[Rfam]
RNA sequence: UCGGCACAGUUAAUGGCACUGGAAGAAUUCACGGGGUUUUUAUAACACACCCGUGAUCUCUUAGUGGCAUCUAUGGUGCGGG
Numbered sequence: 001u002c003g004g005c006a007c008a009g010u011u012a013a014u015g016g017c018a019c020u021g022g023a024a025g026a027a028u029u030c031a032c033g034g035g036g037u038u039u040u041u042a043u044a045a046c047a048c049a050c051c052c053g054u055g056a057u058c059u060c061u062u063a064g065u066g067g068c069a070u071c072u073a074u075g076g077u078g079c080g081g082g
Base pairs, nucleotide, nucleotide: 004079005078006077007076009074010073013070014069015068017066018065020063021062022061023059025058026057029056030055031054032053033052034051

Overview:
Rfam assigns this 82-nucleotide sequence from Drosophila albomicans to the family "mir-263 microRNA precursor family". The base pairs follow the family's consensus structure, which was predicted with RNAalifold. Rfam 15.1 lists 368 matches to the family in 211 species. Rfam links the family to the GO terms miRNA-mediated post-transcriptional gene silencing and RISC complex. Clan: mir-182 clan.